[Rfam]
RNA sequence: UGUAAAGGAUCAAAGGCUAAAUUCGCAGCAUCCUGUCGUUUCGCCCGCACUAGUACGUCUUGUGCGUCGCAACCCCUUUGUGACCUGCGUCCUGCAGG
Numbered sequence: 001u002g003u004a005a006a007g008g009a010u011c012a013a014a015g016g017c018u019a020a021a022u023u024c025g026c027a028g029c030a031u032c033c034u035g036u037c038g039u040u041u042c043g044c045c046c047g048c049a050c051u052a053g054u055a056c057g058u059c060u061u062g063u064g065c066g067u068c069g070c071a072a073c074c075c076c077u078u079u080g081u082g083a084c085c086u087g088c089g090u091c092c093u094g095c096a097g098g
Stems, first nucleotide, its partner, number of pairs: 011080006025070002028067002084098005
Dot-bracket structure: ..........((((((........((.((....................................)).))....))))))...(((((.....)))))
RNA: Bacillaceae-1 RNA